[Rfam]
RNA sequence: UGUGACAUAGGCGGUGAGGCCUCCUCCCGCUGGGCACCCCCUGGCACCCCUUCCCCGGUGCCAGGAAGUGCAAGGCGGGCGGGGACCUGACCGACCUAGUCCCUUUCA
Numbered sequence: 001u002g003u004g005a006c007a008u009a010g011g012c013g014g015u016g017a018g019g020c021c022u023c024c025u026c027c028c029g030c031u032g033g034g035c036a037c038c039c040c041c042u043g044g045c046a047c048c049c050c051u052u053c054c055c056c057g058g059u060g061c062c063a064g065g066a067a068g069u070g071c072a073a074g075g076c077g078g079g080c081g082g083g084g085a086c087c088u089g090a091c092c093g094a095c096c097u098a099g100u101c102c103c104u105u106u107c108a
Base pairs, nucleotide, nucleotide: 010095012093013092014091015090018087019086021084022083023082024081026079027078028077029076030075031072032071035070036069037068040065041064042063043062044061045060046059047058
The record is a 108-nucleotide sequence, which matches "mraW RNA" in Rfam. Rfam's curators put it in the seed alignment. The family's consensus secondary structure is taken from published work. By type it is a cis-regulatory element.